[Rfam]
RNA sequence: UGAUAGCGGUGAAGCGCGAGGUUGCUGCAUUGCCGAGAGACAUUGCAGGUUUUCCGUGGAGCGAAUGUCAAGAGGCCGGAAGUUAAAUACCGGACCUAAGAACCUGACGGCAA
Numbered sequence: 001u002g003a004u005a006g007c008g009g010u011g012a013a014g015c016g017c018g019a020g021g022u023u024g025c026u027g028c029a030u031u032g033c034c035g036a037g038a039g040a041c042a043u044u045g046c047a048g049g050u051u052u053u054c055c056g057u058g059g060a061g062c063g064a065a066u067g068u069c070a071a072g073a074g075g076c077c078g079g080a081a082g083u084u085a086a087a088u089a090c091c092g093g094a095c096c097u098a099a100g101a102a103c104c105u106g107a108c109g110g111c112a113a
Base pairs, nucleotide, nucleotide: 014057015056016055018054019053020052021051025048026047027046028045029044066112067111068110069109072108